[Rfam]
RNA sequence: AGUGAAUAACAAGCGCCAGAACCGUUGUCGGGGUGAGCGCAGCUCACCGCGCAACGGUUGACGAGGGGGAGGUUAAUCGAGGUUUUUCGGCGGGUGCCUCCCGGCUGCCCACGGCCGUAAGCGGUGUCACAAAACUGGCGGGCGACCGCCAGGACAAAAGCACCAGGUGGGAAA
Numbered sequence: 001a002g003u004g005a006a007u008a009a010c011a012a013g014c015g016c017c018a019g020a021a022c023c024g025u026u027g028u029c030g031g032g033g034u035g036a037g038c039g040c041a042g043c044u045c046a047c048c049g050c051g052c053a054a055c056g057g058u059u060g061a062c063g064a065g066g067g068g069g070a071g072g073u074u075a076a077u078c079g080a081g082g083u084u085u086u087u088c089g090g091c092g093g094g095u096g097c098c099u100c101c102c103g104g105c106u107g108c109c110c111a112c113g114g115c116c117g118u119a120a121g122c123g124g125u126g127u128c129a130c131a132a133a134a135c136u137g138g139c140g141g142g143c144g145a146c147c148g149c150c151a152g153g154a155c156a157a158a159a160g161c162a163c164c165a166g167g168u169g170g171g172a173a174a
Stems, first nucleotide, its partner, number of pairs: 020059008029051001068101005077090004102117006122166001123164005135152007
The record is a 174-nucleotide RNA from Thermodesulfitimonas autotrophica, which matches "glmS glucosamine-6-phosphate activated ribozyme aptamer" in Rfam. The family's RNA type in Rfam is riboswitch. The match comes from Rfam's covariance-model search (105 bits). Taxonomically the source falls in Thermodesulfitimonas (Bacteria, Bacillati, Bacillota, Thermoanaerobacteraceae). Pairs were carried over by alignment from the consensus structure, which is taken from published work.